[Rfam]
RNA sequence: UGGGAGGCUGAUACACAAUUUGGGCUGAAGUACUGCCCUAAUCGUCACUACACCUCCCUAAACUAAACUGCCUUUUGAUGACUGGGACGAAUUGAGUGAAAUCGUAACGGACAGAUACGGGGCAGACAAUU
Numbered sequence: 001u002g003g004g005a006g007g008c009u010g011a012u013a014c015a016c017a018a019u020u021u022g023g024g025c026u027g028a029a030g031u032a033c034u035g036c037c038c039u040a041a042u043c044g045u046c047a048c049u050a051c052a053c054c055u056c057c058c059u060a061a062a063c064u065a066a067a068c069u070g071c072c073u074u075u076u077g078a079u080g081a082c083u084g085g086g087a088c089g090a091a092u093u094g095a096g097u098g099a100a101a102u103c104g105u106a107a108c109g110g111a112c113a114g115a116u117a118c119g120g121g122g123c124a125g126a127c128a129a130u131u
Base pairs, nucleotide, nucleotide: 002058003057004056005055006054007053015045016044018042022038023037024036025035068125069124070123071122072121073120074119082110083109084108087105088104089103090102